[Rfam]
Nucleotides: 087
Base pairs, nucleotide, nucleotide: 005050008047009046010045011044012043015040016039017075018074019073020072021071025036026035027034028033063082064081065080067079068078
Number, partner (000 for none) and nucleotide at each position: 001000u002000g003000g004000c005050u006000g007000c008047g009046u010045c011044g012043c013000g014000a015040c016039u017075g018074g019073c020072g021071u022000u023000g024000g025036g026035u027034g028033g029000a030000u031000g032000a033028c034027c035026a036025c037000c038000g039016g040015g041000g042000a043012g044011c045010g046009g047008c048000a049000g050005a051000c052000a053000u054000g055000g056000g057000a058000c059000a060000c061000c062000g063082c064081g065080g066000a067079u068078c069000g070000u071021a072020c073019g074018c075017c076000u077000g078068g079067g080065c081064c082063g083000g084000g085000g086000u087000c

Source information
A member of the RNA family "ZMP/ZTP riboswitch aptamer (pfl RNA motif)" from Sinomonas atrocyanea, 87 nucleotides long.